Shown here is a 136-nucleotide RNA from Dichanthelium oligosanthes, a member of the family "Small nucleolar RNA Z247".

RNA sequence: CCGCUGGAUGAUGAACUGGUCGCCUACAUCCUAAAUGGGUUGGACUGUGAGUUCAAUCUGUUUGUCUCCGCCAUGGUCACCAGGGUUGAGCCGAUCUCUAUCUCUGAGUUGUAUUCACAGCUGCUCAGUUUUGAGA
Number, nucleotide and partner (000 for none) at each position: 001c000002c000003g000004c135005u134006g000007g132008a131009u000010g000011a000012u000013g000014a000015a000016c000017u000018g000019g000020u000021c000022g000023c000024c000025u000026a000027c000028a000029u000030c000031c000032u000033a000034a000035a000036u000037g000038g000039g000040u000041u000042g000043g000044a000045c000046u000047g000048u000049g000050a000051g000052u000053u000054c000055a000056a000057u000058c000059u000060g000061u000062u000063u000064g000065u000066c000067u000068c000069c000070g000071c000072c000073a000074u000075g000076g000077u000078c000079a000080c000081c000082a000083g000084g000085g000086u000087u000088g000089a000090g105091c000092c000093g102094a101095u100096c000097u000098c000099u000100a095101u094102c093103u000104c000105u090106g000107a000108g000109u000110u000111g000112u000113a000114u000115u000116c000117a000118c000119a000120g000121c000122u000123g000124c000125u000126c000127a000128g000129u000130u000131u008132u007133g000134a005135g004136a000
The family's consensus secondary structure was predicted with PFOLD. It is annotated as a C/D-box small nucleolar RNA. The organism belongs to Dichanthelium, within Eukaryota. For this family Rfam cites "The high diversity of snoRNAs in plants: identification and comparative study of 120 snoRNA genes from Oryza sativa" (Chen et al., Nucleic Acids Res, 2003).